[Rfam]
RNA sequence: UCCAAGCAUCAGGAGUGGCCUUGCGAAAGCGGGGUCCGGCAACCUGGUUUGGAGAAGCCAAGGUGCCUUGGAUGCUGUGACAGAAUUCUGUUACGGUGACCGAUGUGCGAAUGUUUACAUUCGAACAGAAUUUCUCUCGGG
Numbered sequence: 001u002c003c004a005a006g007c008a009u010c011a012g013g014a015g016u017g018g019c020c021u022u023g024c025g026a027a028a029g030c031g032g033g034g035u036c037c038g039g040c041a042a043c044c045u046g047g048u049u050u051g052g053a054g055a056a057g058c059c060a061a062g063g064u065g066c067c068u069u070g071g072a073u074g075c076u077g078u079g080a081c082a083g084a085a086u087u088c089u090g091u092u093a094c095g096g097u098g099a100c101c102g103a104u105g106u107g108c109g110a111a112u113g114u115u116u117a118c119a120u121u122c123g124a125a126c127a128g129a130a131u132u133u134c135u136c137u138c139g140g141g
Stems, first nucleotide, its partner, number of pairs: 006106005015037001017036008038067003043063003046059003051136002054133001108123006
The record is a 141-nucleotide RNA, which matches "SAM-I/IV (S-adenosyl methionine) riboswitch aptamer" in Rfam.
The family is grouped with related families in Rfam's "SAM clan".
Rfam 15.1 lists 567 matches to the family in 508 species.
For this family Rfam cites "Structural basis for diversity in the SAM clan of riboswitches" (Trausch et al., PNAS, 2014).